[Rfam]
RNA: ALIL pseudoknot
RNA sequence: CGCGUUUUUCGCCCAGGCGGAGCUCGACCGCCGUUUGAAGAGCUAAAGCACUUCAUCGACCAACACCGUCACACGUUCGGGGUCAAGCCCAUCUGCCGGGUUUUGCAGAUGGCCCCG
Numbered sequence: 001c002g003c004g005u006u007u008u009u010c011g012c013c014c015a016g017g018c019g020g021a022g023c024u025c026g027a028c029c030g031c032c033g034u035u036u037g038a039a040g041a042g043c044u045a046a047a048g049c050a051c052u053u054c055a056u057c058g059a060c061c062a063a064c065a066c067c068g069u070c071a072c073a074c075g076u077u078c079g080g081g082g083u084c085a086a087g088c089c090c091a092u093c094u095g096c097c098g099g100g101u102u103u104u105g106c107a108g109a110u111g112g113c114c115c116c117g
Base pairs, nucleotide, nucleotide: 016032017031018030019029020028078117079116080115081114082113089112090111092109093108094107095106096105098103